A member of the RNA family "Bacterial RNase P class A" from Sanguibacter gelidistatuariae, 378 nucleotides long. The family's RNA type in Rfam is ribozyme. The match comes from Rfam's covariance-model search (311 bits).
RNA sequence: UGAGUUGGCUAGACGGCCGCGUCAGGGUUUCGGCCCUGCCGAGGAACGUCCGGGCUCCACAGGGCAAGGUGGUGGGUAACGCCCACCCGGGGUGACCCGCGGGACAGUGCCACAGAAAGUAGACCGCCGGAGCGCUUGCGCAUCCGGUAAGGGUGAAACGGUGGUGUAAGAGACCACCAGCGCGCCGGGUGACCGGCGCGGCUAGGUAAACCCCACCUGGAGCAAGGUCAGACAGAGUGCGUUUGAGGGCUGCUCGCCCGAGCACUUGGGUAGACCGCUGGAGGCGUGCGGCAACGUACGUCGUAGAUGGAUGGUCGUCGCCUGCGCGGGGGUAACCGUGCGUGGGAACAGAACCCGGCGUACCGGCCAGCUCAUCCG
Numbered sequence: 001u002g003a004g005u006u007g008g009c010u011a012g013a014c015g016g017c018c019g020c021g022u023c024a025g026g027g028u029u030u031c032g033g034c035c036c037u038g039c040c041g042a043g044g045a046a047c048g049u050c051c052g053g054g055c056u057c058c059a060c061a062g063g064g065c066a067a068g069g070u071g072g073u074g075g076g077u078a079a080c081g082c083c084c085a086c087c088c089g090g091g092g093u094g095a096c097c098c099g100c101g102g103g104a105c106a107g108u109g110c111c112a113c114a115g116a117a118a119g120u121a122g123a124c125c126g127c128c129g130g131a132g133c134g135c136u137u138g139c140g141c142a143u144c145c146g147g148u149a150a151g152g153g154u155g156a157a158a159c160g161g162u163g164g165u166g167u168a169a170g171a172g173a174c175c176a177c178c179a180g181c182g183c184g185c186c187g188g189g190u191g192a193c194c195g196g197c198g199c200g201g202c203u204a205g206g207u208a209a210a211c212c213c214c215a216c217c218u219g220g221a222g223c224a225a226g227g228u229c230a231g232a233c234a235g236a237g238u239g240c241g242u243u244u245g246a247g248g249g250c251u252g253c254u255c256g257c258c259c260g261a262g263c264a265c266u267u268g269g270g271u272a273g274a275c276c277g278c279u280g281g282a283g284g285c286g287u288g289c290g291g292c293a294a295c296g297u298a299c300g301u302c303g304u305a306g307a308u309g310g311a312u313g314g315u316c317g318u319c320g321c322c323u324g325c326g327c328g329g330g331g332g333u334a335a336c337c338g339u340g341c342g343u344g345g346g347a348a349c350a351g352a353a354c355c356c357g358g359c360g361u362a363c364c365g366g367c368c369a370g371c372u373c374a375u376c377c378g
Base pairs, nucleotide, nucleotide: 001374002373003372004371005370006369007368008367009366010365012319013318014317015316016315017314018313020041021040023038024037025036026035027034028033046361047360048359050358051357052356053355054354055222056221057220058219062255063254064253065252067218068217069216070215071214072086073085074084075083076082087101088099089098090097091096102213103212107211108210109207110206111205124152125151126148127147128146129145130144131143132141133140134139160178161177162176163175164174165173180202181200182199183198184197185196186195187194188193226276227275228274229273235267236266237265238264239263240262247259248258249257250256283302284301285300286299287298288297289296290295